Shown here is a 180-nucleotide sequence from Candidatus Enterococcus dunnyi, a member of the family "Listeria sRNA rli28".
RNA sequence: UGAACUAUGUUAUGAUCGAUGAGUAGAAAAGUGAAAAAGAUGGUGGCUAACUCCUAGAAAAAGGGGGGAUGCUUAUGGUUCUCUGCUUUAUCCCUGGAAAGGAAUAGACAUGUCUGUUUUUGAAGCACUUACGCUGAUGGUUGCAUUUGCAACUUUAGUUGUGCUGAUCAUAGACCAAGA
Dot-bracket structure: ..........................................((.((..............(((((.((.((............)).)).)))))................((..((.(.....).))..))................)).))....(((............))).....
Numbered sequence: 001u002g003a004a005c006u007a008u009g010u011u012a013u014g015a016u017c018g019a020u021g022a023g024u025a026g027a028a029a030a031g032u033g034a035a036a037a038a039g040a041u042g043g044u045g046g047c048u049a050a051c052u053c054c055u056a057g058a059a060a061a062a063g064g065g066g067g068g069a070u071g072c073u074u075a076u077g078g079u080u081c082u083c084u085g086c087u088u089u090a091u092c093c094c095u096g097g098a099a100a101g102g103a104a105u106a107g108a109c110a111u112g113u114c115u116g117u118u119u120u121u122g123a124a125g126c127a128c129u130u131a132c133g134c135u136g137a138u139g140g141u142u143g144c145a146u147u148u149g150c151a152a153c154u155u156u157a158g159u160u161g162u163g164c165u166g167a168u169c170a171u172a173g174a175c176c177a178a179g180a
Stems, first nucleotide, its partner, number of pairs: 043153002046150002062095005068089002071086002112132002116128002119125001158175003
Description:
The family's RNA type in Rfam is small RNA. The family's consensus secondary structure was predicted with RNAalifold. On this family, see Michels et al., Neuroendocrinology 1991: "Muscarinic cholinergic control of vasopressin secretion from the acute hypothalamoneurohypophysial explant". NCBI's taxonomy places the organism under Bacteria, Bacillota, Bacilli, Lactobacillales, Enterococcus.